Small nucleolar RNA Z199: an 84-nucleotide RNA.
RNA sequence: AAAUCAGGUGAUGAAAGAAAUACUGCAACAAUAUGAUUGGAAAUUAGUUUUCCAUGAUUAAUAGUAUUUAAGUCUCUGAUGAUU
Numbered sequence: 001a002a003a004u005c006a007g008g009u010g011a012u013g014a015a016a017g018a019a020a021u022a023c024u025g026c027a028a029c030a031a032u033a034u035g036a037u038u039g040g041a042a043a044u045u046a047g048u049u050u051u052c053c054a055u056g057a058u059u060a061a062u063a064g065u066a067u068u069u070a071a072g073u074c075u076c077u078g079a080u081g082a083u084u
Stems, first nucleotide, its partner, number of pairs: 001084002004082003039053005

Pairs were carried over by alignment from the consensus structure, which was predicted with PFOLD. Rfam describes the family as follows. snoZ199 is a C/D box small nucleolar RNA, which acts as a methylation guide RNA for sites on 18S and 25S rRNA. Rice snoZ199 is reported to be homologous to Arabidopsis snoR13.